[Rfam]
A member of the RNA family "Streptomyces sRNA 4677" from Streptomyces sp. Root264, 258 nucleotides long. The match comes from Rfam's covariance-model search (212 bits). The base pairs follow the family's consensus structure. It is annotated as a small RNA. Rfam 15.1 lists 563 matches to the family in 285 species. From the family's description: Located in the intergenic region between anti-sigma factor SCO4677 gene and a putative regulatory protein gene SCO4676. scr4677 expression requires the SCO4677 activity and scr4677 sRNA itself seem to affect the levels of the SCO4676-associated transcripts. The literature on the family includes a 2014 paper in PLoS One by Hindra et al., "Complex intra-operonic dynamics mediated by a small RNA in Streptomyces coelicolor".
RNA sequence: GGUUCCGGUGCCGUCGGCCGUCUUCUUUGCAAGGACCACCGGGGAGAAAGAAACCCCACCAAGCCCCACCCCUCCCGCCCACGGCGCAUGCUCACUCUCGCGAGUGAACAUCACCAACUCAGCUGGAUUCGGUACCGGUUGCCUGCUCUACGCUCAGCGCGACACAGCACAACGCACAUGCCCCAGACAUACGACGGCCCUCGCAGGGACUGGCAUCCCUUGCGAGGGCCUGACCACCAAGGAAGCAACACCUUCCCG
Numbered sequence: 001g002g003u004u005c006c007g008g009u010g011c012c013g014u015c016g017g018c019c020g021u022c023u024u025c026u027u028u029g030c031a032a033g034g035a036c037c038a039c040c041g042g043g044g045a046g047a048a049a050g051a052a053a054c055c056c057c058a059c060c061a062a063g064c065c066c067c068a069c070c071c072c073u074c075c076c077g078c079c080c081a082c083g084g085c086g087c088a089u090g091c092u093c094a095c096u097c098u099c100g101c102g103a104g105u106g107a108a109c110a111u112c113a114c115c116a117a118c119u120c121a122g123c124u125g126g127a128u129u130c131g132g133u134a135c136c137g138g139u140u141g142c143c144u145g146c147u148c149u150a151c152g153c154u155c156a157g158c159g160c161g162a163c164a165c166a167g168c169a170c171a172a173c174g175c176a177c178a179u180g181c182c183c184c185a186g187a188c189a190u191a192c193g194a195c196g197g198c199c200c201u202c203g204c205a206g207g208g209a210c211u212g213g214c215a216u217c218c219c220u221u222g223c224g225a226g227g228g229c230c231u232g233a234c235c236a237c238c239a240a241g242g243a244a245g246c247a248a249c250a251c252c253u254u255c256c257c258g
Base pairs, nucleotide, nucleotide: 007238008237009236010235016079017078018077020076092107093106094105095104096103097102122158123157124156125155126154196230197229198228199227200226202224203223204222206219207218208217209216241256242255243254244253245252